[Rfam]
RNA sequence: AAUCCUGGGUAAUCGCGGUCGGCUUAUGUCGAUUGAGGAAGGUCCAUGCCCGCACAAGCUGCGAUGCUUGUAGUGUUCGUGCUCGGCUAUAAACCGGGGGAUCGGUGCUUGCACCGAUUACGGCGACAAAAACGGCUAAGGCGUAAGCUAUGCCCGAGUAUGUCUGAAAAGUGCCACAGUGACGAUAGCUAGUUGGAAACGACUAGUUUGGAACGCGGUAAACCCCACGAGCGGGAAACCCAAACUUAUGGUAGGGGAGCCUCACACACUGGAAUUGAACAAAGUGUGAGGGGAGAUUUUAUAAUCUUGAGAUAGAUGAUUACCGCCAUAUUGACUGACGUCUGUGCUUCAAUAUGGUACAAAACGUGGCCUACAGGG
Numbered sequence: 001a002a003u004c005c006u007g008g009g010u011a012a013u014c015g016c017g018g019u020c021g022g023c024u025u026a027u028g029u030c031g032a033u034u035g036a037g038g039a040a041g042g043u044c045c046a047u048g049c050c051c052g053c054a055c056a057a058g059c060u061g062c063g064a065u066g067c068u069u070g071u072a073g074u075g076u077u078c079g080u081g082c083u084c085g086g087c088u089a090u091a092a093a094c095c096g097g098g099g100g101a102u103c104g105g106u107g108c109u110u111g112c113a114c115c116g117a118u119u120a121c122g123g124c125g126a127c128a129a130a131a132a133c134g135g136c137u138a139a140g141g142c143g144u145a146a147g148c149u150a151u152g153c154c155c156g157a158g159u160a161u162g163u164c165u166g167a168a169a170a171g172u173g174c175c176a177c178a179g180u181g182a183c184g185a186u187a188g189c190u191a192g193u194u195g196g197a198a199a200c201g202a203c204u205a206g207u208u209u210g211g212a213a214c215g216c217g218g219u220a221a222a223c224c225c226c227a228c229g230a231g232c233g234g235g236a237a238a239c240c241c242a243a244a245c246u247u248a249u250g251g252u253a254g255g256g257g258a259g260c261c262u263c264a265c266a267c268a269c270u271g272g273a274a275u276u277g278a279a280c281a282a283a284g285u286g287u288g289a290g291g292g293g294a295g296a297u298u299u300u301a302u303a304a305u306c307u308u309g310a311g312a313u314a315g316a317u318g319a320u321u322a323c324c325g326c327c328a329u330a331u332u333g334a335c336u337g338a339c340g341u342c343u344g345u346g347c348u349u350c351a352a353u354a355u356g357g358u359a360c361a362a363a364a365c366g367u368g369g370c371c372u373a374c375a376g377g378g
Stems, first nucleotide, its partner, number of pairs: 004378003007374001008324007016035006040372003044369005049235005054071006077230005082098005099121001100119008122225002125164004134154003140149003171223002173219003188207008239256003260291007293308005326357009
A member of the RNA family "Bacterial RNase P class B" from Lactiplantibacillus mudanjiangensis, 378 nucleotides long. The family's RNA type in Rfam is ribozyme. Gene Ontology terms of the family: dimeric ribonuclease P complex, ribonuclease P activity and tRNA processing. Ribonuclease P (RNase P) is a ubiquitous endoribonuclease, found in archaea, bacteria and eukarya as well as chloroplasts and mitochondria. Its best characterised activity is the generation of mature 5'-ends of tRNAs by cleaving the 5'-leader elements of precursor-tRNAs. Cellular RNase Ps are ribonucleoproteins. The source organism's lineage runs through Bacteria, Bacillota, Bacilli, Lactobacillaceae and Lactiplantibacillus.